The record is a 114-nucleotide RNA from Myotis davidii, which matches "Potassium channel RNA editing signal" in Rfam.
[Rfam]
RNA sequence: GUGGGCUACGGCGACAUGUGCCCGACCACCGCCGGGGGCAAGAUCGUGGGCAUCCUGUGCGCCAUCGCCGGCGUCCUGACCAUCGCGCUCCCGGUGCCCGUCAUCGAGAGAGAG
Numbered sequence: 001g002u003g004g005g006c007u008a009c010g011g012c013g014a015c016a017u018g019u020g021c022c023c024g025a026c027c028a029c030c031g032c033c034g035g036g037g038g039c040a041a042g043a044u045c046g047u048g049g050g051c052a053u054c055c056u057g058u059g060c061g062c063c064a065u066c067g068c069c070g071g072c073g074u075c076c077u078g079a080c081c082a083u084c085g086c087g088c089u090c091c092c093g094g095u096g097c098c099c100g101u102c103a104u105c106g107a108g109a110g111a112g113a114g
Base pairs, nucleotide, nucleotide: 002113007108009106010105011104013102014101015100018097019096020095021094037077038076040074049063050062051061

A reference for the family is Bhalla et al. (2004), "Control of human potassium channel inactivation by editing of a small mRNA hairpin", Nat Struct Mol Biol. The family's consensus secondary structure is taken from published work. Rfam links the family to the GO term adenosine to inosine editing. Rfam describes the family as follows. This family represents a group of sequences related to the human potassium channel Kv1.1 hairpin element which directs the efficient modification of an adenosine to inosine by an adenosine deaminase acting on RNA (ADAR). The ADAR modification causes an isoleucine/valine recoding event which lies in the ion-conducting pore of the potassium channel. The family's RNA type in Rfam is cis-regulatory element. The source organism's lineage runs through Eukaryota, Craniata, Sarcopterygii, Chiroptera and Myotis.